The record is a 99-nucleotide RNA sequence from Metarhizium anisopliae, which matches "Small nucleolar RNA snR60/Z15/Z230/Z193/J17" in Rfam.
Its family is annotated with RNA processing and nucleolus in the Gene Ontology.
Rfam classes the family as a C/D-box small nucleolar RNA.
A search with the family's covariance model found it, with a score of 66 bits.
The pairing is the family consensus, mapped onto this sequence.
RNA sequence: AUGUGUACAUGAUGAUUACCAAGCAAUGCAUAGUUCAUCUGAAACUACUGAUGAGACCUAUACCUUCAUAAAGUCUUUCGCUCCCAUCUGAUUACAUCA
Numbered sequence: 001a002u003g004u005g006u007a008c009a010u011g012a013u014g015a016u017u018a019c020c021a022a023g024c025a026a027u028g029c030a031u032a033g034u035u036c037a038u039c040u041g042a043a044a045c046u047a048c049u050g051a052u053g054a055g056a057c058c059u060a061u062a063c064c065u066u067c068a069u070a071a072a073g074u075c076u077u078u079c080g081c082u083c084c085c086a087u088c089u090g091a092u093u094a095c096a097u098c099a
Stems, first nucleotide, its partner, number of pairs: 004096004
Record summary:
NCBI's taxonomy places the organism under Eukaryota, Fungi, leotiomyceta, Sordariomycetes, Metarhizium anisopliae. The literature on the family includes a 1999 paper in Science by Lowe and Eddy, "A computational screen for methylation guide snoRNAs in yeast".